[Rfam]
RNA sequence: AUAGAAAUUAAAUAACGCUGUCGUAUAAUGUCGGGGAUAUGGCCCGAAAGUUUCUACCGAGUUACCGUAAAUGACUCGACUACGAUUUAAGUUUUUAUUCCU
Numbered sequence: 001a002u003a004g005a006a007a008u009u010a011a012a013u014a015a016c017g018c019u020g021u022c023g024u025a026u027a028a029u030g031u032c033g034g035g036g037a038u039a040u041g042g043c044c045c046g047a048a049a050g051u052u053u054c055u056a057c058c059g060a061g062u063u064a065c066c067g068u069a070a071a072u073g074a075c076u077c078g079a080c081u082a083c084g085a086u087u088u089a090a091g092u093u094u095u096u097a098u099u100c101c102u
Base pairs, nucleotide, nucleotide: 020086021085022084023083024082025081029049031047032046033045034044035043058078059077060076061075062074063073064072
The family of this 102-nucleotide sequence from Planococcus halotolerans is "Purine riboswitch aptamer".
Clan: Purine riboswitches.
The match comes from Rfam's covariance-model search (89 bits).